A member of the RNA family "Bacterial RNase P class A" from a Geobacteraceae bacterium, 374 nucleotides long. A search with the family's covariance model found it, with a score of 334 bits. Rfam classes the family as a ribozyme.
RNA sequence: GAAGCAGAACAGACAGUCGCCGCGUUUCACCUGUUGAAACGGGGAGGAAAGUCCGGGCUCCAGAGAGCAUGGUGCUGGAUAACGUCCAGCGGGGGUGACCCCAGGGAAAGUGCCACAGAGAGAAGUCCGCCCGCUAUAUGCGGGUAAGGGUGAAAGGGUGAGGUAAGAGCUCACCGGGUUCGGCGGUGACGCCGGAUGCCAGGUAAACCCCACCAGGAGCAAGACCAAAUAGGGGAGCAUCAAGGGCUGCUCGCCCGCGCUUCCGGGUUGGUUGCUUGAGGUCGUCGGUAACGGCGAUCCUAGAUGAAUGACUGUCACCUCCUUCAAGGUAACUUGGGAGAGGAACAGGACCCGGCUUACGGUCUGCUUCAGCC
Number, nucleotide and partner (000 for none) at each position: 001g370002a369003a368004g367005c366006a365007g364008a363009a000010c361011a000012g316013a315014c314015a313016g312017u311018c310019g000020c044021c043022g000023c041024g040025u039026u038027u037028c036029a000030c000031c000032u000033g000034u000035u000036g028037a027038a026039a025040c024041g023042g000043g021044g020045a000046g000047g000048a000049a358050a357051g356052u000053c355054c354055g353056g352057g351058c219059u218060c217061c216062a000063g000064a000065g252066a251067g250068c249069a000070u215071g214072g213073u212074g211075c089076u088077g087078g086079a085080u000081a000082a000083c000084g000085u079086c078087c077088a076089g075090c104091g102092g101093g100094g099095g000096u000097g000098a000099c094100c093101c092102c091103a000104g090105g210106g209107a000108a000109a000110g208111u207112g204113c203114c202115a000116c000117a000118g000119a000120g000121a000122g000123a000124a000125g000126u000127c149128c148129g145130c144131c143132c142133g141134c140135u000136a000137u000138a000139u000140g134141c133142g132143g131144g130145u129146a000147a000148g128149g127150g000151u000152g000153a000154a000155a000156g000157g175158g174159u173160g172161a171162g170163g000164u000165a000166a000167g000168a000169g000170c162171u161172c160173a159174c158175c157176g000177g199178g197179u196180u195181c194182g193183g192184c191185g190186g000187u000188g000189a000190c185191g184192c183193c182194g181195g180196a179197u178198g000199c177200c000201a000202g114203g113204u112205a000206a000207a111208c110209c106210c105211c074212a073213c072214c071215a070216g061217g060218a059219g058220c000221a000222a000223g273224a272225c271226c270227a000228a000229a000230u000231a000232g000233g264234g263235g262236a261237g260238c259239a000240u000241c000242a000243a000244g256245g255246g254247c253248u000249g068250c067251u066252c065253g247254c246255c245256c244257g000258c000259g238260c237261u236262u235263c234264c233265g000266g000267g000268u000269u000270g226271g225272u224273u223274g000275c000276u000277u000278g000279a000280g299281g298282u297283c296284g295285u294286c293287g292288g000289u000290a000291a000292c287293g286294g285295c284296g283297a282298u281299c280300c000301u000302a000303g000304a000305u000306g000307a000308a000309u000310g018311a017312c016313u015314g014315u013316c012317a000318c000319c000320u000321c000322c000323u000324u000325c000326a000327a000328g000329g000330u000331a000332a000333c000334u000335u000336g000337g000338g000339a000340g000341a000342g000343g000344a000345a000346c000347a000348g000349g000350a000351c057352c056353c055354g054355g053356c051357u050358u049359a000360c000361g010362g000363u008364c007365u006366g005367c004368u003369u002370c001371a000372g000373c000374c000